Rfam assigns this 210-nucleotide RNA sequence from Bacillus mesophilus to the family "Bacillus sRNA ncr1575". Rfam classes the family as a small RNA. The literature on the family includes a 2010 paper in Nucleic Acids Res by Irnov et al., "Identification of regulatory RNAs in Bacillus subtilis". Lineage of the source: Bacteria > Bacillati > Bacillota > Caryophanales > Bacillus. The match comes from Rfam's covariance-model search (123 bits).

[Rfam]
RNA sequence: UUUAUAAGAUCUAAAGGAGUGAUGGAUGGACGAUGGAUAACUAAUCUUAUUUUUAGAAAUUUGAAAUGGUAUAUUUCAAAUCAAACAAAAAUUGGAUUAGUCUGCCCAUUUUAAUAAACUUGUAGAGCUAUGAACGACAAUAGCUUAUUUGUUUUAUUUCAUCCUCUUAAGGUGCGGCUAAUCCUUCCAUUGAAAUGGGAGGAUUUUUUA
Numbered sequence: 001u002u003u004a005u006a007a008g009a010u011c012u013a014a015a016g017g018a019g020u021g022a023u024g025g026a027u028g029g030a031c032g033a034u035g036g037a038u039a040a041c042u043a044a045u046c047u048u049a050u051u052u053u054u055a056g057a058a059a060u061u062u063g064a065a066a067u068g069g070u071a072u073a074u075u076u077c078a079a080a081u082c083a084a085a086c087a088a089a090a091a092u093u094g095g096a097u098u099a100g101u102c103u104g105c106c107c108a109u110u111u112u113a114a115u116a117a118a119c120u121u122g123u124a125g126a127g128c129u130a131u132g133a134a135c136g137a138c139a140a141u142a143g144c145u146u147a148u149u150u151g152u153u154u155u156a157u158u159u160c161a162u163c164c165u166c167u168u169a170a171g172g173u174g175c176g177g178c179u180a181a182u183c184c185u186u187c188c189a190u191u192g193a194a195a196u197g198g199g200a201g202g203a204u205u206u207u208u209u210a
Base pairs, nucleotide, nucleotide: 017112018111023108024107025106029102030101031100042099043098044097045096046095047094049092050091051090052089053088054087059081060080061079062078063077064076065075066074067073125160126159127158132153133152136149137148180205181204182203183202184201185200186199187198188197189196190195
The base pairs follow the family's consensus structure, which is taken from published work.